[Rfam]
RNA sequence: UCUCGACAAAGGCAAAACCGGUGAAAGCCGGCGACGCAAAGCUAUAGGGGCUACCACGCGACAAAAAUCGUGCAAUGCCAGCCAGCUGCCGAA
Numbered sequence: 001u002c003u004c005g006a007c008a009a010a011g012g013c014a015a016a017a018c019c020g021g022u023g024a025a026a027g028c029c030g031g032c033g034a035c036g037c038a039a040a041g042c043u044a045u046a047g048g049g050g051c052u053a054c055c056a057c058g059c060g061a062c063a064a065a066a067a068u069c070g071u072g073c074a075a076u077g078c079c080a081g082c083c084a085g086c087u088g089c090c091g092a093a
Base pairs, nucleotide, nucleotide: 012037013036018031019030020029021028022027040087041086042085043084047083048082049079050078051077057072058071059070060069061068
Overview: The family of this 93-nucleotide sequence from Paenibacillus sp. yr247 is "c-di-GMP-I riboswitch aptamer". Rfam describes the family as follows. GEMM was predicted in a large-scale screen for bacterial structured RNA regulatory elements. Gene Ontology term of the family: cyclic-di-GMP binding. The organism belongs to Paenibacillus, within Bacteria.